RybB RNA: an 80-nucleotide RNA from Pectobacterium atrosepticum. This ncRNA was identified in a large scale screen of E. coli. The function of this short RNA is unknown. The exact 5' and 3' ends of this RNA are uncertain. A reference for the family is Wassarman et al. (2001), "Identification of novel small RNAs using comparative genomics and microarrays", Genes Dev.

RNA sequence: ACUGCUUUUCUUUGAUUCCCCUUAUUGAGGAAGCCCAUCGUUCCCGCCUUUCAGGUUCAAGAGCGAUGGGCGUUUUCUUU
Numbered sequence: 001a002c003u004g005c006u007u008u009u010c011u012u013u014g015a016u017u018c019c020c021c022u023u024a025u026u027g028a029g030g031a032a033g034c035c036c037a038u039c040g041u042u043c044c045c046g047c048c049u050u051u052c053a054g055g056u057u058c059a060a061g062a063g064c065g066a067u068g069g070g071c072g073u074u075u076u077c078u079u080u
Stems, first nucleotide, its partner, number of pairs: 031073001033071011